Rfam assigns this 58-nucleotide RNA sequence from Ferrimicrobium acidiphilum to the family "Fluoride riboswitch aptamer (crcB RNA motif)". The match comes from Rfam's covariance-model search (36 bits). Taxonomically the source falls in Ferrimicrobium acidiphilum (Bacteria, Actinomycetota, Acidimicrobiales, Ferrimicrobium).
RNA sequence: AUGGCUUGCGGCGAUGGAGUUCGCUGAUGCGUCUCAGACUGAUGACUCCUACUAAAGC
Numbered sequence: 001a002u003g004g005c006u007u008g009c010g011g012c013g014a015u016g017g018a019g020u021u022c023g024c025u026g027a028u029g030c031g032u033c034u035c036a037g038a039c040u041g042a043u044g045a046c047u048c049c050u051a052c053u054a055a056a057g058c
Base pairs, nucleotide, nucleotide: 010025011024012023013022016049017048018047019046020045021044031039032038033037